[Rfam]
RNA sequence: AAGAUGAUGGCAGGGAGAGUCUUAAGCAUCGCUUGGUCACGUUUAAUGAGGAUGCUUUUGCGCCGAAGGAGCAAGCUUUAUGGCUGGUCGAGUCUUAAAGUUAAUCUCUCAGGUACAAGGAACCGCCAUCGGACG
Number, nucleotide and partner (000 for none) at each position: 001a000002a000003g000004a000005u000006g130007a129008u128009g127010g126011c125012a000013g123014g000015g000016a000017g000018a000019g000020u000021c060022u000023u000024a057025a056026g055027c054028a053029u052030c051031g000032c000033u000034u000035g000036g000037u000038c000039a000040c000041g000042u000043u000044u000045a000046a000047u000048g000049a000050g000051g030052a029053u028054g027055c026056u025057u024058u000059u000060g021061c000062g114063c113064c112065g110066a109067a000068g000069g108070a107071g106072c000073a000074a000075g101076c100077u099078u098079u097080a096081u000082g000083g000084c000085u000086g000087g000088u000089c000090g000091a000092g000093u000094c000095u000096u080097a079098a078099a077100g076101u075102u000103a000104a000105u000106c071107u070108c069109u066110c065111a000112g064113g063114u062115a000116c000117a000118a000119g000120g000121a000122a000123c013124c000125g011126c010127c009128a008129u007130c006131g000132g000133a000134c000135g000
The record is a 135-nucleotide sequence from Paenibacillus sp. TCA20, which matches "Glycine riboswitch aptamer" in Rfam. It scores 42 bits against the family's covariance model. Its family is annotated with glycine biosynthetic process in the Gene Ontology.